[Rfam]
RNA sequence: CGCAAACGGGGAAGUGCCGUGCGGCCAGCUCCCUACAAAUCCCCCCAGAGCUUGAUCGCAGCAAGGGUAGUUGGUUGUAGCGGUGCGAUACGGAGAGCUUUCCCACCC
Numbered sequence: 001c002g003c004a005a006a007c008g009g010g011g012a013a014g015u016g017c018c019g020u021g022c023g024g025c026c027a028g029c030u031c032c033c034u035a036c037a038a039a040u041c042c043c044c045c046c047a048g049a050g051c052u053u054g055a056u057c058g059c060a061g062c063a064a065g066g067g068u069a070g071u072u073g074g075u076u077g078u079a080g081c082g083g084u085g086c087g088a089u090a091c092g093g094a095g096a097g098c099u100u101u102c103c104c105a106c107c108c
Stems, first nucleotide, its partner, number of pairs: 008104008017093005022087002024084002
Shown here is a 108-nucleotide sequence from Alloprevotella rava, a member of the family "Bacteroidales small SRP". Clan: SRP clan. On this family, see Ryan et al., Nat Commun 2020: "A high-resolution transcriptome map identifies small RNA regulation of metabolism in the gut microbe Bacteroides thetaiotaomicron". It scores 104 bits against the family's covariance model. The base pairs follow the family's consensus structure, which is taken from published work.